[Rfam]
RNA: Lysine riboswitch aptamer
RNA sequence: CGGUGGGGUAGAGGUGCAUAAUUUAAGAGUAGGCUAUGUGAGGAUGACAACGUUGAGCAUAGGUGAAAGGAGAUUGUGCCGAAGUAAUAUGACGUGUCACCGUUUUAUUACUGGGGUUACUUUGAAUAAGGGUAACACUGUCAUUAUGGGAUAUCCAUAAUGGGGAGCUACAGGUCGG
Numbered sequence: 001c002g003g004u005g006g007g008g009u010a011g012a013g014g015u016g017c018a019u020a021a022u023u024u025a026a027g028a029g030u031a032g033g034c035u036a037u038g039u040g041a042g043g044a045u046g047a048c049a050a051c052g053u054u055g056a057g058c059a060u061a062g063g064u065g066a067a068a069g070g071a072g073a074u075u076g077u078g079c080c081g082a083a084g085u086a087a088u089a090u091g092a093c094g095u096g097u098c099a100c101c102g103u104u105u106u107a108u109u110a111c112u113g114g115g116g117u118u119a120c121u122u123u124g125a126a127u128a129a130g131g132g133u134a135a136c137a138c139u140g141u142c143a144u145u146a147u148g149g150g151a152u153a154u155c156c157a158u159a160a161u162g163g164g165g166a167g168c169u170a171c172a173g174g175u176c177g178g
Base pairs, nucleotide, nucleotide: 008171009170010169011168016079017078018077019076020075021074022073023072024071032064034062035061036060037059038058039057083112084111085110086109087108088107089106091104092103093102094101113139114138116136117135118134119133120132121131122130123129141163142162143161144160145159146158147157